[Rfam]
RNA: Small Cajal body specific RNA 6
Organism: Gadus morhua
RNA sequence: GGUCGAUGAUGAGUUCCGUAAAAGGUCUGACCCCGUCCUCUAGCCCCCCUCCGCUCCCAGCAGCCCCUAAUUUACCCAGCAUGCUCUAGUCGUGCAGCGCUGGUUUCAGGAGCUGCUGACACACAGGAUGUGACAUCACAAUCUGAGUCAGUCAGAGAUCCCAUUGGGUCAGUGUGGUGAUUUACAUCCCAUAGAACCAAUCUGCAAGGCGCAAGGGGGCGGGGCAGAGGACAUGGAGAUGAUCACAAGUUUUCAAGCUGAGACC
Number, nucleotide and partner (000 for none) at each position: 001g265002g264003u263004c262005g000006a000007u000008g000009a000010u000011g000012a000013g000014u000015u000016c000017c000018g000019u000020a000021a000022a000023a000024g000025g000026u000027c000028u000029g000030a000031c000032c000033c000034c000035g246036u245037c000038c000039u242040c241041u000042a000043g000044c221045c000046c219047c218048c215049c000050u000051c000052c000053g000054c211055u000056c209057c208058c118059a117060g116061c115062a114063g113064c112065c000066c000067c000068u000069a000070a000071u000072u000073u000074a000075c000076c103077c102078a101079g100080c099081a000082u097083g000084c094085u000086c000087u000088a000089g000090u000091c000092g000093u000094g084095c000096a000097g082098c000099g080100c079101u078102g077103g076104u000105u000106u000107c000108a000109g000110g000111a000112g064113c063114u062115g061116c060117u059118g058119a000120c000121a000122c000123a000124c000125a000126g189127g188128a187129u186130g185131u184132g183133a000134c000135a000136u000137c000138a000139c000140a000141a000142u000143c000144u171145g170146a169147g000148u167149c166150a165151g164152u163153c000154a000155g000156a000157g000158a000159u000160c000161c000162c000163a152164u151165u150166g149167g148168g000169u146170c145171a144172g000173u000174g000175u000176g000177g000178u000179g000180a000181u000182u000183u132184a131185c130186a129187u128188c127189c126190c000191a000192u000193a000194g000195a000196a000197c000198c000199a000200a000201u000202c000203u000204g000205c000206a000207a000208g057209g056210c000211g054212c000213a000214a000215g048216g000217g000218g047219g046220c000221g044222g000223g000224g000225c000226a000227g000228a000229g000230g000231a000232c000233a000234u000235g000236g000237a000238g000239a000240u000241g040242a039243u000244c000245a036246c035247a000248a000249g000250u000251u000252u000253u000254c000255a000256a000257g000258c000259u000260g000261a000262g004263a003264c002265c001